This 96-nucleotide RNA sequence from Phasianus colchicus belongs to the Rfam family "Vault RNA". Pairs were carried over by alignment from the consensus structure, which is taken from published work. Rfam classes the family as a non-coding RNA gene. The organism belongs to Phasianus, within Eukaryota. For this family Rfam cites "Evolution of Vault RNAs" (Stadler et al., Mol Biol Evol, 2009).
[Rfam]
RNA sequence: GGGCCGGCUUUAGCCCAGCGGUUCCUUCGGUUCAUGCAUUCUGUGUAUUCCGGGCUCCGACUGGGGUUCGAUCCCGCGGGCACCCCUGGCCCAUUU
Numbered sequence: 001g002g003g004c005c006g007g008c009u010u011u012a013g014c015c016c017a018g019c020g021g022u023u024c025c026u027u028c029g030g031u032u033c034a035u036g037c038a039u040u041c042u043g044u045g046u047a048u049u050c051c052g053g054g055c056u057c058c059g060a061c062u063g064g065g066g067u068u069c070g071a072u073c074c075c076g077c078g079g080g081c082a083c084c085c086c087u088g089g090c091c092c093a094u095u096u
Stems, first nucleotide, its partner, number of pairs: 002091006013081004018077004027071004